[Rfam]
RNA sequence: GCGGCCGCCAAGGGCAAGAUGGCGGCGGCCCCGGGCCCCGCCCCUUCCGUCUCGCGGGGCGCUGCA
Numbered sequence: 001g002c003g004g005c006c007g008c009c010a011a012g013g014g015c016a017a018g019a020u021g022g023c024g025g026c027g028g029c030c031c032c033g034g035g036c037c038c039c040g041c042c043c044c045u046u047c048c049g050u051c052u053c054g055c056g057g058g059g060c061g062c063u064g065c066a
Base pairs, nucleotide, nucleotide: 001065002064003063004062005061006059008057009056012052013051014050015049018047019046021044022043024042025041026040027039028038030035
Rfam assigns this 66-nucleotide RNA sequence from Mustela putorius to the family "mir-718 microRNA precursor family". The match comes from Rfam's covariance-model search (60 bits). Lineage of the source: Eukaryota > Opisthokonta > Vertebrata > Mustelinae > Mustela putorius. The base pairs follow the family's consensus structure, which was predicted with RNAalifold. Its family is annotated with miRNA-mediated post-transcriptional gene silencing and RISC complex in the Gene Ontology.